The family of this 87-nucleotide sequence from Chlorocebus sabaeus is "mir-515 microRNA precursor family". Clan: mir-290 clan. The family has 181 seed sequences and 1,056 matches in Rfam 15.1. Its family is annotated with miRNA-mediated post-transcriptional gene silencing and RISC complex in the Gene Ontology.
[Rfam]
RNA sequence: UCUCAGACGGUAACUCUCUAAGGGGAAGCGCAUUCUUUUCUUCCAGACAACAGAAAGUGCUUCCCCUUAGAGGGUCACAGCCUGAGA
Numbered sequence: 001u002c003u004c005a006g007a008c009g010g011u012a013a014c015u016c017u018c019u020a021a022g023g024g025g026a027a028g029c030g031c032a033u034u035c036u037u038u039u040c041u042u043c044c045a046g047a048c049a050a051c052a053g054a055a056a057g058u059g060c061u062u063c064c065c066c067u068u069a070g071a072g073g074g075u076c077a078c079a080g081c082c083u084g085a086g087a
Base pairs, nucleotide, nucleotide: 001087002086003085004084005083008080010078011077013075014074016072017071018070020068021067022066023065024064025063026062027061028060029059030058031057033055034054035053038052